[Rfam]
RNA sequence: GGGCUGGCUUUAGCUCAGCAUUUCCUUCGACAGUGUUUUAUCAACCUCUUUGUGGAGUCAGAGCGGUUCGAGACCCACGGGUGCUCUCCAGCCCUUUA
Numbered sequence: 001g002g003g004c005u006g007g008c009u010u011u012a013g014c015u016c017a018g019c020a021u022u023u024c025c026u027u028c029g030a031c032a033g034u035g036u037u038u039u040a041u042c043a044a045c046c047u048c049u050u051u052g053u054g055g056a057g058u059c060a061g062a063g064c065g066g067u068u069c070g071a072g073a074c075c076c077a078c079g080g081g082u083g084c085u086c087u088c089c090a091g092c093c094c095u096u097u098a
Stems, first nucleotide, its partner, number of pairs: 002093006013082004018078001026072005